Shown here is an 86-nucleotide sequence from Synechococcus sp. CC9605, a member of the family "Cyanobacterial ribosomal protein S1 leader". By type it is a cis-regulatory leader. From the family's description: cyano-S1 is a ncRNA recognized in the 5-prime region of genes encoding 30S ribosomal protein S1, it has been proposed as an cis regulation element.

[Rfam]
Nucleotides: 086
Base pairs, nucleotide, nucleotide: 023048024047025046026045028043029042030041031040032039034084035083036082037081038080062078063077064076065075066074
Number, partner (000 for none) and nucleotide at each position: 001000g002000u003000c004000u005000g006000u007000a008000a009000a010000g011000u012000c013000a014000g015000u016000a017000g018000u019000u020000c021000u022000c023048c024047a025046u026045g027000a028043a029042a030041c031040g032039u033000c034084g035083g036082c037081g038080g039032g040031c041030g042029u043028u044000c045026c046025a047024u048023g049000c050000g051000a052000u053000u054000u055000u056000u057000u058000c059000g060000a061000a062078c063077u064076a065075c066074c067000c068000a069000c070000c071000u072000g073000a074066g075065g076064u077063a078062g079000a080038c081037c082036g083035c084034c085000a086000g